The record is a 297-nucleotide sequence from Limosa lapponica, which matches "Metazoan signal recognition particle RNA" in Rfam. A reference for the family is Rosenblad et al. (2009), "Kinship in the SRP RNA family", RNA Biol. The match comes from Rfam's covariance-model search (174 bits). From the family's description: The signal recognition particle (SRP) is a universally conserved ribonucleoprotein. It is involved in the co-translational targeting of proteins to membranes. Taxonomically the source falls in Limosa lapponica (Eukaryota, Chordata, Vertebrata, Saurischia).
[Rfam]
RNA sequence: GCCUGGCACGGUGGCUUGUGCCUGUAAUCCAAGUGCCGGGGAGGCUGAAACUGGUGGAUGGCUUGAGCCUGGGUGUUCUGGGCUGGUGUGAGCUGUGCCAAGCAGGCGUCCACGCUAAGUUUUGGCAUCGAUAUGGUGGUCCUGGGGAAGCUGAGGGCCACCAGGUUGCUUAAGGAGGGGCGAACCGGCACAGGUUGGAGAUGGAGCAGGUCAAAACUCCUGGGCUGAUCUGUAUGAUGGCGCCUGUGAACAGUCCCUGUAGCACAGUCUGGGCGAGAGAGUGGGACCCAGUUUUCC
Numbered sequence: 001g002c003c004u005g006g007c008a009c010g011g012u013g014g015c016u017u018g019u020g021c022c023u024g025u026a027a028u029c030c031a032a033g034u035g036c037c038g039g040g041g042a043g044g045c046u047g048a049a050a051c052u053g054g055u056g057g058a059u060g061g062c063u064u065g066a067g068c069c070u071g072g073g074u075g076u077u078c079u080g081g082g083c084u085g086g087u088g089u090g091a092g093c094u095g096u097g098c099c100a101a102g103c104a105g106g107c108g109u110c111c112a113c114g115c116u117a118a119g120u121u122u123u124g125g126c127a128u129c130g131a132u133a134u135g136g137u138g139g140u141c142c143u144g145g146g147g148a149a150g151c152u153g154a155g156g157g158c159c160a161c162c163a164g165g166u167u168g169c170u171u172a173a174g175g176a177g178g179g180g181c182g183a184a185c186c187g188g189c190a191c192a193g194g195u196u197g198g199a200g201a202u203g204g205a206g207c208a209g210g211u212c213a214a215a216a217c218u219c220c221u222g223g224g225c226u227g228a229u230c231u232g233u234a235u236g237a238u239g240g241c242g243c244c245u246g247u248g249a250a251c252a253g254u255c256c257c258u259g260u261a262g263c264a265c266a267g268u269c270u271g272g273g274c275g276a277g278a279g280a281g282u283g284g285g286a287c288c289c290a291g292u293u294u295u296c297c
Stems, first nucleotide, its partner, number of pairs: 001045003005022007028042003047295008059284001061282004067274007078267003082263004088257001090255001092254005098248001102247008110236001116234002118231002122228005128222001129168004134163010145152002169175002176221005187212003195204003

Rfam links the family to the GO terms SRP-dependent cotranslational protein targeting to membrane, signal sequence recognition and signal recognition particle, endoplasmic reticulum targeting.
Pairs were carried over by alignment from the consensus structure, which is taken from published work.